The family of this 109-nucleotide RNA sequence from Allobosea sp. AAP35 is "EcpR1". Rfam's curators write: Perviously named SmelC291, SmrC10, or Sra33.
RNA sequence: AUGCCCCUCGGGUGCUCAGGUCCGCCGCAUCUCCUGGGAAACCGGGGGGCUCGGCCGGCCGGCUGCGGACAAUCUGGCCUCCUCAGACCUGCUGCCGGCCGGCCACCUU
Numbered sequence: 001a002u003g004c005c006c007c008u009c010g011g012g013u014g015c016u017c018a019g020g021u022c023c024g025c026c027g028c029a030u031c032u033c034c035u036g037g038g039a040a041a042c043c044g045g046g047g048g049g050c051u052c053g054g055c056c057g058g059c060c061g062g063c064u065g066c067g068g069a070c071a072a073u074c075u076g077g078c079c080u081c082c083u084c085a086g087a088c089c090u091g092c093u094g095c096c097g098g099c100c101g102g103c104c105a106c107c108u109u
Stems, first nucleotide, its partner, number of pairs: 003050008015038006053104011